[Rfam]
Nucleotides: 084
Base pairs, nucleotide, nucleotide: 003082004081005080007078008077009076010075011074013072014071015070016069017068019066020065021064022063023062024061025060026059027058028057029056030055031054032053033052034051035050036049037048038047039046
Number, partner (000 for none) and nucleotide at each position: 001000u002000a003082a004081c005080u006000c007078c008077c009076u010075c011074u012000g013072u014071c015070c016069c017068a018000u019066a020065a021064u022063a023062u024061a025060a026059g027058a028057u029056g030055u031054u032053u033052u034051u035050u036049g037048a038047c039046a040000g041000u042000g043000u044000a045000g046039u047038g048037u049036c050035a051034a052033a053032a054031a055030a056029c057028g058027u059026c060025u061024u062023a063022u064021g065020u066019u067000a068017u069016g070015g071014g072013a073000c074011a075010g076009a077008g078007g079000g080005a081004g082003u083000a084000g